[Rfam]
Notes:
The record is a 74-nucleotide RNA from Pelusios castaneus, which matches "Small nucleolar RNA SNORD59" in Rfam. Its Rfam clan is "SNORD59 clan". Rfam links the family to the GO terms RNA processing and nucleolus. The family has 24 seed sequences and 1,355 matches in Rfam 15.1.

RNA sequence: CCUUCGCUGAUGAGUACCGUGAUGACUUUCGUUCUUCUGAGUUUGCUGAAGCCACUACCAAUCUUCUGAGAAGG
Numbered sequence: 001c002c003u004u005c006g007c008u009g010a011u012g013a014g015u016a017c018c019g020u021g022a023u024g025a026c027u028u029u030c031g032u033u034c035u036u037c038u039g040a041g042u043u044u045g046c047u048g049a050a051g052c053c054a055c056u057a058c059c060a061a062u063c064u065u066c067u068g069a070g071a072a073g074g
Base pairs, nucleotide, nucleotide: 001074002073003072005070
It scores 78 bits against the family's covariance model. For this family Rfam cites "Purified box C/D snoRNPs are able to reproduce site-specific 2'-O-methylation of target RNA in vitro" (Galardi et al., Mol Cell Biol, 2002).